[Rfam]
The record is a 51-nucleotide sequence, which matches "Glutamine riboswitch aptamer (glnA leader)" in Rfam.
RNA sequence: UUCGUUCAUCUAUUCACAGACGGAAGUAGGAAUUAACCGAAGGAACGCAUC
Numbered sequence: 001u002u003c004g005u006u007c008a009u010c011u012a013u014u015c016a017c018a019g020a021c022g023g024a025a026g027u028a029g030g031a032a033u034u035a036a037c038c039g040a041a042g043g044a045a046c047g048c049a050u051c
Stems, first nucleotide, its partner, number of pairs: 003047005009020003023048001029038002

The base pairs follow the family's consensus structure, which is taken from published work.